Rfam assigns this 53-nucleotide sequence to the family "RAGATH-5 RNA". On this family, see Weinberg et al., Nat Chem Biol 2015: "New classes of self-cleaving ribozymes revealed by comparative genomics analysis".
[Rfam]
RNA sequence: GCGGACACUCUAGCCGGGUUGCACCGCACAAAGCAGCCCAGCCCCACACCCCG
Numbered sequence: 001g002c003g004g005a006c007a008c009u010c011u012a013g014c015c016g017g018g019u020u021g022c023a024c025c026g027c028a029c030a031a032a033g034c035a036g037c038c039c040a041g042c043c044c045c046a047c048a049c050c051c052c053g
Stems, first nucleotide, its partner, number of pairs: 001027004013042001016039003020035003